RNA: pemK RNA
Organism: Firmicutes bacterium CAG:94
RNA sequence: ACUUCCGUCCAGCCACAGAAUCACACAAUGGGGGCGGCCGGGUGAGAACCACGCGGGGUGAGAAUCCAUGA
Numbered sequence: 001a002c003u004u005c006c007g008u009c010c011a012g013c014c015a016c017a018g019a020a021u022c023a024c025a026c027a028a029u030g031g032g033g034g035c036g037g038c039c040g041g042g043u044g045a046g047a048a049c050c051a052c053g054c055g056g057g058g059u060g061a062g063a064a065u066c067c068a069u070g071a
Base pairs, nucleotide, nucleotide: 004068005037006036007035008034009033010032038056039055040054042052043051044050057067058066